[Rfam]
RNA sequence: ACUGGAAGCUGAAUGGACCUCCAGUGCAGGCAAUUGAAAUGUCUUUUGCCUGUUUUUCCAGGCUUCCUAGAGUAAAAGUGAAGGUCUCUGUCUGGUUUAGAACAGUCAACUGAUCCAGAUCGUUCCCCUUUGCACAUU
Numbered sequence: 001a002c003u004g005g006a007a008g009c010u011g012a013a014u015g016g017a018c019c020u021c022c023a024g025u026g027c028a029g030g031c032a033a034u035u036g037a038a039a040u041g042u043c044u045u046u047u048g049c050c051u052g053u054u055u056u057u058c059c060a061g062g063c064u065u066c067c068u069a070g071a072g073u074a075a076a077a078g079u080g081a082a083g084g085u086c087u088c089u090g091u092c093u094g095g096u097u098u099a100g101a102a103c104a105g106u107c108a109a110c111u112g113a114u115c116c117a118g119a120u121c122g123u124u125c126c127c128c129u130u131u132g133c134a135c136a137u138u
Base pairs, nucleotide, nucleotide: 004067005066006065009061010060011059026053027052028051029050030049031048036045037044080131081130082129083128084127088122090120091119092118094116095115097113098112099111100110
Shown here is a 138-nucleotide RNA from Podarcis muralis, a member of the family "Small Cajal body specific RNA 3". For this family Rfam cites "Cajal body-specific small nuclear RNAs: a novel class of 2'-O-methylation and pseudouridylation guide RNAs" (Darzacq et al., EMBO J, 2002). Pairs were carried over by alignment from the consensus structure, which was predicted with RNAalifold. The source organism's lineage runs through Eukaryota, Eumetazoa, Deuterostomia, Dipnotetrapodomorpha and Podarcis. scaRNAs are a specific class of small nuclear RNAs which localise to the Cajal bodies and guide the modification of RNA polymerase II transcribed spliceosomal RNAs U1, U2, U4, U5 and U12.